[Rfam]
Nucleotides: 086
Base pairs, nucleotide, nucleotide: 003085004084005083006082007080008079009078010077011076012075013074014073016072017071018070019069020068021067
Number, partner (000 for none) and nucleotide at each position: 001000a002000a003085g004084u005083a006082g007080u008079g009078u010077g011076a012075c013074a014073u015000g016072c017071c018070c019069g020068u021067u022000u023000g024000g025000g026000a027000u028000u029000u030000a031000c032000u033000c034000u035000g036000a037000u038000g039000a040000u041000u042000a043000u044000a045000u046000a047000u048000u049000a050000u051000u052000u053000a054000a055000u056000u057000g058000c059000u060000u061000u062000u063000g064000u065000g066000u067021a068020a069019c070018g071017g072016g073014g074013u075012g076011u077010u078009a079008c080007a081000a082006c083005u084004g085003c086000a
The family of this 86-nucleotide sequence from Medicago truncatula is "MIR2617 microRNA precursor family". NCBI's taxonomy places the organism under Eukaryota, Gunneridae, rosids, Papilionoideae, Medicago. A search with the family's covariance model found it, with a score of 71 bits.